[Rfam]
A member of the RNA family "Small nucleolar RNA U105B" from Anguilla anguilla, 76 nucleotides long. The source organism's lineage runs through Eukaryota, Opisthokonta, Craniata, Teleostomi and Anguilla. Rfam 15.1 lists 132 matches to the family in 131 species.
RNA sequence: UUGGGUGCAGAUGAUGACAGCUUGAAAUCUGAACACAAUGAUUUCAGUUCAAAGUAAACGCACUGAUGCACCCUCC
Numbered sequence: 001u002u003g004g005g006u007g008c009a010g011a012u013g014a015u016g017a018c019a020g021c022u023u024g025a026a027a028u029c030u031g032a033a034c035a036c037a038a039u040g041a042u043u044u045c046a047g048u049u050c051a052a053a054g055u056a057a058a059c060g061c062a063c064u065g066a067u068g069c070a071c072c073c074u075c076c
Stems, first nucleotide, its partner, number of pairs: 005071005010021001012019002029047004
A search with the family's covariance model found it, with a score of 49 bits.
On this family, see Yang et al., Nucleic Acids Res 2006: "snoSeeker: an advanced computational package for screening of guide and orphan snoRNA genes in the human genome".